[Rfam]
RNA sequence: GGCUCUUCCUAUCAUUGUGAAGCAGAAUUCACCAGGCGUUGGAUUGUUCCCACUAAUAGGGAACGUGAGCUGAGUUUAAACCAUUGUGAGACAGGUUAGUU
Number, nucleotide and partner (000 for none) at each position: 001g071002g070003c069004u068005c065006u062007u061008c060009c059010u058011a000012u000013c038014a000015u000016u000017g032018u031019g030020a029021a028022g000023c000024a000025g000026a000027a000028u021029u020030c019031a018032c017033c000034a000035g000036g000037c000038g013039u000040u052041g051042g050043a000044u000045u000046g000047u000048u000049c000050c042051c041052a040053c000054u000055a000056a000057u000058a010059g009060g008061g007062a006063a000064c000065g005066u000067g000068a004069g003070c002071u001072g000073a000074g000075u000076u000077u000078a000079a097080a096081c095082c094083a000084u091085u090086g000087u000088g000089a000090g085091a084092c000093a000094g082095g081096u080097u079098a000099g000100u000101u000
The record is a 101-nucleotide part of an RNA from Tychaedon coryphoeus, which matches "Eukaryotic large subunit ribosomal RNA" in Rfam. Rfam 15.1 lists 107,465 matches to the family in 2,616 species. NCBI's taxonomy places the organism under Eukaryota, Eumetazoa, Vertebrata, Gnathostomata, Tychaedon. A search with the family's covariance model found it, with a score of 2218 bits.